The record is a 144-nucleotide sequence from Psychromonas sp. Urea-02u-13, which matches "Molybdenum/Tungsten riboswitch aptamer (Moco RNA motif)" in Rfam.
RNA sequence: UUAUACCUACAGCUCCGAGCUUAAUAUCGCUAAGUUUUUUGAAUAUGUGAAUUAAGCCGCUUAACGUUAACCAUUUGUUAAGAAGGGUAAAACAAGAAAUUGUUUUGCCUCCCGUGUUUGGAAAGGAACUAAAACAUGCAACAG
Numbered sequence: 001u002u003a004u005a006c007c008u009a010c011a012g013c014u015c016c017g018a019g020c021u022u023a024a025u026a027u028c029g030c031u032a033a034g035u036u037u038u039u040u041g042a043a044u045a046u047g048u049g050a051a052u053u054a055a056g057c058c059g060c061u062u063a064a065c066g067u068u069a070a071c072c073a074u075u076u077g078u079u080a081a082g083a084a085g086g087g088u089a090a091a092a093c094a095a096g097a098a099a100u101u102g103u104u105u106u107g108c109c110u111c112c113c114g115u116g117u118u119u120g121g122a123a124a125g126g127a128a129c130u131a132a133a134a135c136a137u138g139c140a141a142c143a144g
Stems, first nucleotide, its partner, number of pairs: 011130002014127003019057007027050004034044004060082007085110011111121002

A search with the family's covariance model found it, with a score of 84 bits.